[Rfam]
RNA sequence: AUGGUGGAUACUGAAAAACCAAAACAGAGUAAGUA
Numbered sequence: 001a002u003g004g005u006g007g008a009u010a011c012u013g014a015a016a017a018a019c020c021a022a023a024a025c026a027g028a029g030u031a032a033g034u035a
Base pairs, nucleotide, nucleotide: 002021003020004019005018010034011033012032
A member of the RNA family "DUF805b RNA" from Tenacibaculum jejuense, 35 nucleotides long. Its Rfam clan is "DUF805 clan".